[Rfam]
RNA sequence: GCCGAGGCUAGAGUCACAUCCUGACAUGGUGCUUGUCCUGGUGUGCUACAGUUCUCGGAGAGAAUCGCUGGUCUUGAUUCAUUGGUAGGGGCCUUCAGUGUCCCUUCUAGUGCCCAGAUCAGAAACAUGG
Numbered sequence: 001g002c003c004g005a006g007g008c009u010a011g012a013g014u015c016a017c018a019u020c021c022u023g024a025c026a027u028g029g030u031g032c033u034u035g036u037c038c039u040g041g042u043g044u045g046c047u048a049c050a051g052u053u054c055u056c057g058g059a060g061a062g063a064a065u066c067g068c069u070g071g072u073c074u075u076g077a078u079u080c081a082u083u084g085g086u087a088g089g090g091g092c093c094u095u096c097a098g099u100g101u102c103c104c105u106u107c108u109a110g111u112g113c114c115c116a117g118a119u120c121a122g123a124a125a126c127a128u129g130g
Stems, first nucleotide, its partner, number of pairs: 002058005007052003012047002015045006023037004068122007076114001080112006087105006